[Rfam]
RNA: Small nucleolar RNA Z266
RNA sequence: AAUAUGGCAGGCGUGAUGAAUCAAUUAGAUGUGUGAAUGGAAGUUUUCUCAUGUGCUUAACUUUUGAGGCAUAUUAUAUUUCUGACCUGCCGAUU
Numbered sequence: 001a002a003u004a005u006g007g008c009a010g011g012c013g014u015g016a017u018g019a020a021u022c023a024a025u026u027a028g029a030u031g032u033g034u035g036a037a038u039g040g041a042a043g044u045u046u047u048c049u050c051a052u053g054u055g056c057u058u059a060a061c062u063u064u065u066g067a068g069g070c071a072u073a074u075u076a077u078a079u080u081u082c083u084g085a086c087c088u089g090c091c092g093a094u095u
Base pairs, nucleotide, nucleotide: 001095002094003093005092006091007090008089009088010087011086